[Rfam]
RNA sequence: CUCGCUUGGUGGCGCACUUGGACAAGUUCUUGGUGGGCUAACGUGUACUUUUAAUAAAGAAAAUGAAUCACACAAAGCCCGCUAACCAUGCGGGCUUUUUAUU
Numbered sequence: 001c002u003c004g005c006u007u008g009g010u011g012g013c014g015c016a017c018u019u020g021g022a023c024a025a026g027u028u029c030u031u032g033g034u035g036g037g038c039u040a041a042c043g044u045g046u047a048c049u050u051u052u053a054a055u056a057a058a059g060a061a062a063a064u065g066a067a068u069c070a071c072a073c074a075a076a077g078c079c080c081g082c083u084a085a086c087c088a089u090g091c092g093g094g095c096u097u098u099u100u101a102u103u
Base pairs, nucleotide, nucleotide: 009042010041012039015035016034017033018032020030021029022028076096077095078094079093080092081091082090083088

The family of this 103-nucleotide sequence from Vibrio vulnificus is "Tryptophan operon leader". On this family, see Kolter and Yanofsky, Annu Rev Genet 1982: "Attenuation in amino acid biosynthetic operons". Rfam links the family to the GO terms transcriptional attenuation by ribosome and tryptophan biosynthetic process. Pairs were carried over by alignment from the consensus structure, which is taken from published work. It is one of the family's seed sequences. NCBI's taxonomy places the organism under Bacteria, Pseudomonadati, Pseudomonadota, Gammaproteobacteria, Vibrio vulnificus. At least 6 amino acid operons are known to be regulated by attenuation. In each a leader sequence of 150-200 bp is found upstream of the first gene in the operon. It is annotated as a cis-regulatory leader.